[Rfam]
RNA sequence: CAUACUGUGUGUCACUGGCGUAAACAUGGAUAACCAUGAGGGAGCACACAGAUAAAAGCCGUACGCCUGGGCAAAGUAU
Numbered sequence: 001c002a003u004a005c006u007g008u009g010u011g012u013c014a015c016u017g018g019c020g021u022a023a024a025c026a027u028g029g030a031u032a033a034c035c036a037u038g039a040g041g042g043a044g045c046a047c048a049c050a051g052a053u054a055a056a057a058g059c060c061g062u063a064c065g066c067c068u069g070g071g072c073a074a075a076g077u078a079u
Stems, first nucleotide, its partner, number of pairs: 005051008015041002017067005026037004058072003

The family of this 79-nucleotide RNA from Paenibacillus cremeus is "ZMP/ZTP riboswitch aptamer (pfl RNA motif)". The match comes from Rfam's covariance-model search (58 bits). The family's consensus secondary structure is taken from published work. Gene Ontology terms of the family: one-carbon metabolic process and regulation of purine nucleotide biosynthetic process.